Nucleotides: 216
Stems, first nucleotide, its partner, number of pairs: 007099002015094004026083003030079002037073003048070006102127007129141003159175006180213004191209005
Number, partner (000 for none) and nucleotide at each position: 001000g002000u003000a004000a005000c006000a007099g008098u009000g010000g011000u012000g013000a014000a015094a016093g017092g018091a019000a020000a021000u022000a023000g024000u025000a026083g027082c028081a029000u030079g031078u032000a033000a034000g035000u036000u037073u038072u039071c040000u041000a042000c043000a044000g045000a046000g047000a048070g049069u050068c051067g052066g053065u054000g055000g056000c057000a058000g059000g060000u061000g062000g063000a064000a065053a066052c067051c068050g069049a070048u071039g072038a073037a074000a075000a076000c077000a078031g079030c080000u081028u082027g083026c084000g085000a086000a087000u088000c089000c090000a091018u092017c093016c094015u095000u096000g097000a098008a099007c100000u101000g102127g103126u104125u105124u106123g107122c108121u109000g110000a111000a112000c113000g114000g115000a116000c117000a118000g119000u120000a121108g122107g123106c124105a125104g126103a127102c128000c129141c130140g131139g132000c133000u134000a135000a136000a137000c138000g139131u140130c141129g142000u143000u144000a145000u146000u147000u148000u149000a150000u151000u152000u153000g154000a155000g156000c157000c158000g159175g160174a161173a162172g163171c164170g165000g166000u167000a168000a169000a170164u171163g172162c173161u174160u175159c176000a177000a178000u179000g180213a181212g182211g183210g184000u185000g186000g187000c188000a189000a190000c191209g192208c193207g194206g195205g196000u197000a198000a199000a200000a201000c202000a203000c204000u205195c206194c207193c208192g209191u210183c211182c212181c213180u214000g215000u216000u
Background:
T-box leader: a 216-nucleotide RNA sequence from Lentibacillus salicampi. The match comes from Rfam's covariance-model search (141 bits). Its family is annotated with tRNA binding in the Gene Ontology. Rfam classes the family as a cis-regulatory leader. NCBI's taxonomy places the organism under Bacteria, Bacillati, Bacillota, Caryophanales, Lentibacillus. The base pairs follow the family's consensus structure, which is taken from published work.